[Rfam]
RNA sequence: AUUAAUCUGAAAUAUUUGUGACUUUCAUAUUUUGAACCUACAUUAUGAAAAAGGGAGUUCAACAUUUAGAUGCGGAUAUGAACCAUUACGUGAGACCUCUAUAUGGCAGUGAAGGAGAUAGAAGCAUCUGUGAGGACACCCACCUAUCGAUGAGAUAGGUGUCAAAAUAUGAGGUACGGUAUUUUGGAUUACAU
Dot-bracket structure: ..(((((((((((((.(((..........((.((((((..............(((.((((...(..(((((((....((...((.((((...................)))).))..))....))))))))..)))).)))................))).))).))........))))))))))))))))...
RNA: 6S / SsrS RNA
Organism: Paramaledivibacter caminithermalis